[Rfam]
This 442-nucleotide part of an RNA from Cecembia lonarensis belongs to the Rfam family "Bacterial large subunit ribosomal RNA". The organism belongs to Cecembia lonarensis, within Bacteria. Gene Ontology terms of the family: ribosome and structural constituent of ribosome.
RNA sequence: CUCCCCGAAAUGUUUUUAGGAACAGCGUCGUGGAAUGUAUUGAUGAGGUAGAGCUACCGAUAGGACUAGGGGGAGUCACAUCCUACCAAAUCCUGACGAACUCCGAAUGCGUUGAUACAGUAACGGCAGUGAGGGCUCGGGUGCUAAGGUCCGAGUCCGAGAGGGAAAGAACCCGGACCUACCGCUAAGGUCCCGAAAUUUACACUAAGUUGAACAAAGGUGGUCCAGCUGCAGAGACAGCCAGGAGGUUAGCUUGGAAGCAGCUAUUCCUUUAAAGAGUGCGUAACAGCUCACUGGUCGAGCGGCAGGGCGUCGAUAAUAAACGGGCAUCAAGUGUAAUACCGAAGCGUAGGAUACAGACAUGGGUCUGUGUGGUAGGGGAGCAUUCCAAUACCGGUGAAUGUGCACGGCGAUGUGUGCUGGAGGUUUUGGAAAAGCAAAU
Numbered sequence: 001c002u003c004c005c006c007g008a009a010a011u012g013u014u015u016u017u018a019g020g021a022a023c024a025g026c027g028u029c030g031u032g033g034a035a036u037g038u039a040u041u042g043a044u045g046a047g048g049u050a051g052a053g054c055u056a057c058c059g060a061u062a063g064g065a066c067u068a069g070g071g072g073g074a075g076u077c078a079c080a081u082c083c084u085a086c087c088a089a090a091u092c093c094u095g096a097c098g099a100a101c102u103c104c105g106a107a108u109g110c111g112u113u114g115a116u117a118c119a120g121u122a123a124c125g126g127c128a129g130u131g132a133g134g135g136c137u138c139g140g141g142u143g144c145u146a147a148g149g150u151c152c153g154a155g156u157c158c159g160a161g162a163g164g165g166a167a168a169g170a171a172c173c174c175g176g177a178c179c180u181a182c183c184g185c186u187a188a189g190g191u192c193c194c195g196a197a198a199u200u201u202a203c204a205c206u207a208a209g210u211u212g213a214a215c216a217a218a219g220g221u222g223g224u225c226c227a228g229c230u231g232c233a234g235a236g237a238c239a240g241c242c243a244g245g246a247g248g249u250u251a252g253c254u255u256g257g258a259a260g261c262a263g264c265u266a267u268u269c270c271u272u273u274a275a276a277g278a279g280u281g282c283g284u285a286a287c288a289g290c291u292c293a294c295u296g297g298u299c300g301a302g303c304g305g306c307a308g309g310g311c312g313u314c315g316a317u318a319a320u321a322a323a324c325g326g327g328c329a330u331c332a333a334g335u336g337u338a339a340u341a342c343c344g345a346a347g348c349g350u351a352g353g354a355u356a357c358a359g360a361c362a363u364g365g366g367u368c369u370g371u372g373u374g375g376u377a378g379g380g381g382a383g384c385a386u387u388c389c390a391a392u393a394c395c396g397g398u399g400a401a402u403g404u405g406c407a408c409g410g411c412g413a414u415g416u417g418u419g420c421u422g423g424a425g426g427u428u429u430u431g432g433a434a435a436a437g438c439a440a441a442u
Base pairs, nucleotide, nucleotide: 001383002382003381004380005379006378011024012023013022014021015020026129027127028126029125030124031123033121036120037118038117039116040115041114042113043112044111045110051104052102053101058098059097062094063093064092065091069087070086071084072083073082074081133158134157135156136155137154138153139152140151141150142149163174164173165172178353179352180351181350183349184348185347189343190342191341198340200339201338202337203336204335205334219314220313221312223311224310225309226308228306229305230304231303232302240298241297242296243295244294246271247270248269251265252264253263272276277292281290282289354373355372356371357370358369359368360367361366384437386434387433388432389431390430391429393427394426395425403420404419405418406417407416408415409414